[Rfam]
RNA sequence: UCCGUCGCGAGGUGGAAUCUGAAGGACGAGAACCCGUAGGGGUCUGAGGCAAAGUUCCGGGCCGACAAACAGAAACCGCAUAUAAGGUAAAAGCAAGGCGGACGAGUUUCCUAAACAAAACAAAGUCCAAAGGCCGGAAAGGAAGAGAAUAGAUUUCGGCUGUACUGCCCGAACCUUGCAAUGUAAAUGCGGCGGUUACAUGGGAUGAAGGUUAUCGGC
Numbered sequence: 001u002c003c004g005u006c007g008c009g010a011g012g013u014g015g016a017a018u019c020u021g022a023a024g025g026a027c028g029a030g031a032a033c034c035c036g037u038a039g040g041g042g043u044c045u046g047a048g049g050c051a052a053a054g055u056u057c058c059g060g061g062c063c064g065a066c067a068a069a070c071a072g073a074a075a076c077c078g079c080a081u082a083u084a085a086g087g088u089a090a091a092a093g094c095a096a097g098g099c100g101g102a103c104g105a106g107u108u109u110c111c112u113a114a115a116c117a118a119a120a121c122a123a124a125g126u127c128c129a130a131a132g133g134c135c136g137g138a139a140a141g142g143a144a145g146a147g148a149a150u151a152g153a154u155u156u157c158g159g160c161u162g163u164a165c166u167g168c169c170c171g172a173a174c175c176u177u178g179c180a181a182u183g184u185a186a187a188u189g190c191g192g193c194g195g196u197u198a199c200a201u202g203g204g205a206u207g208a209a210g211g212u213u214a215u216c217g218g219c
Stems, first nucleotide, its partner, number of pairs: 001016006042219003046215001049212002054206006060197005076192006087184003093179006100128004106121004
The record is a 219-nucleotide sequence, which matches "Group II catalytic intron D1-D4-3" in Rfam. The pairing is the family consensus, mapped onto this sequence.